[Rfam]
RNA: Small nucleolar RNA SNORD45
Organism: Carlito syrichta
RNA sequence: GGUUGAUGAUGAGCUGGCAUGUAUUCUGAAUCUAAAGUUGAUUAUUACUACAACUCUAAAAUUAUUGAGACCUG
Numbered sequence: 001g002g003u004u005g006a007u008g009a010u011g012a013g014c015u016g017g018c019a020u021g022u023a024u025u026c027u028g029a030a031u032c033u034a035a036a037g038u039u040g041a042u043u044a045u046u047a048c049u050a051c052a053a054c055u056c057u058a059a060a061a062u063u064a065u066u067g068a069g070a071c072c073u074g
Stems, first nucleotide, its partner, number of pairs: 001072004